[Rfam]
RNA sequence: UUCACGUUCAACUCACGUUCAACGUUUGACCGUUCGUCUUAUUUAAAUUUUUUUAUGAUUAGUAUUUCUAUUGCUAUUAGAUGAUAAAACAUGAAUAUUACUUUAUGUGUGAUUAAAUAUUUUUAAUUUUUUUAUAAAUUUUUCAAAUAAAACGGACGGUCAAACGUUCGAUACGGAUAUCCACAGCUGCACUUAUU
Numbered sequence: 001u002u003c004a005c006g007u008u009c010a011a012c013u014c015a016c017g018u019u020c021a022a023c024g025u026u027u028g029a030c031c032g033u034u035c036g037u038c039u040u041a042u043u044u045a046a047a048u049u050u051u052u053u054u055a056u057g058a059u060u061a062g063u064a065u066u067u068c069u070a071u072u073g074c075u076a077u078u079a080g081a082u083g084a085u086a087a088a089a090c091a092u093g094a095a096u097a098u099u100a101c102u103u104u105a106u107g108u109g110u111g112a113u114u115a116a117a118u119a120u121u122u123u124u125a126a127u128u129u130u131u132u133u134a135u136a137a138a139u140u141u142u143u144c145a146a147a148u149a150a151a152a153c154g155g156a157c158g159g160u161c162a163a164a165c166g167u168u169c170g171a172u173a174c175g176g177a178u179a180u181c182c183a184c185a186g187c188u189g190c191a192c193u194u195a196u197u
Stems, first nucleotide, its partner, number of pairs: 018171002021168003025164013039150004

Source information: The record is a 197-nucleotide RNA sequence from Oryza glumipatula, which matches "MIR812 microRNA precursor family" in Rfam. The match comes from Rfam's covariance-model search (156 bits). The family's consensus secondary structure was predicted with RNAalifold. Its family is annotated with miRNA-mediated post-transcriptional gene silencing and RISC complex in the Gene Ontology.